[Rfam]
RNA sequence: GAACACCUCGAAGAAUCGCUGUCAAAGCAACACACACGGAGCAAUAAUUUUAUUAGCUCAAUACCUAUUGCUUUGGGGAAAGUCCUCGGACAUAUGGCAGAAAGUGUCUCCCAUAGUGUGGUAUUACCAAUUCGCUUUUGACCUUCCUUAUGUCAAAGAAAAGGGUUUUCGAAUCCUUGAGACUCUUUGGGAAGUGUCGCGAAGAGGUUUUGUUGGUCAUAGCACAGUUAUGCGAUUGUGGUCUUUCUCUCCUGCACUUGUUACAGGAGAAGAGACCAUAACACAACGGGGCUUACUCUUGGGGUGUU
Numbered sequence: 001g002a003a004c005a006c007c008u009c010g011a012a013g014a015a016u017c018g019c020u021g022u023c024a025a026a027g028c029a030a031c032a033c034a035c036a037c038g039g040a041g042c043a044a045u046a047a048u049u050u051u052a053u054u055a056g057c058u059c060a061a062u063a064c065c066u067a068u069u070g071c072u073u074u075g076g077g078g079a080a081a082g083u084c085c086u087c088g089g090a091c092a093u094a095u096g097g098c099a100g101a102a103a104g105u106g107u108c109u110c111c112c113a114u115a116g117u118g119u120g121g122u123a124u125u126a127c128c129a130a131u132u133c134g135c136u137u138u139u140g141a142c143c144u145u146c147c148u149u150a151u152g153u154c155a156a157a158g159a160a161a162a163g164g165g166u167u168u169u170c171g172a173a174u175c176c177u178u179g180a181g182a183c184u185c186u187u188u189g190g191g192a193a194g195u196g197u198c199g200c201g202a203a204g205a206g207g208u209u210u211u212g213u214u215g216g217u218c219a220u221a222g223c224a225c226a227g228u229u230a231u232g233c234g235a236u237u238g239u240g241g242u243c244u245u246u247c248u249c250u251c252c253u254g255c256a257c258u259u260g261u262u263a264c265a266g267g268a269g270a271a272g273a274g275a276c277c278a279u280a281a282c283a284c285a286a287c288g289g290g291g292c293u294u295a296c297u298c299u300u301g302g303g304g305u306g307u308u
Stems, first nucleotide, its partner, number of pairs: 002308010014237006022076007039059004044054001080294003084291004096108004109123001111121004126208002133196005139190001141188001152183003165175001167173002239278008
A member of the RNA family "RNase MRP" from Acaulospora morrowiae, 308 nucleotides long. Gene Ontology terms of the family: ribonuclease MRP complex, rRNA processing and ribonuclease MRP activity. The family's RNA type in Rfam is ribozyme. Taxonomically the source falls in Acaulospora (Eukaryota, Opisthokonta, Glomeromycota, Diversisporales). From the family's description: RNase MRP is an enzymatically active ribonucleoprotein with two distinct roles in eukaryotes. In mitochondria it plays a direct role in the initiation of mitochondrial DNA replication. In the nucleus it is involved in precursor rRNA processing, where it cleaves the internal transcribed spacer 1 between 18S and 5.8S rRNAs. For this family Rfam cites "Secondary structure of RNase MRP RNA as predicted by phylogenetic comparison" (Schmitt et al., FASEB J, 1993).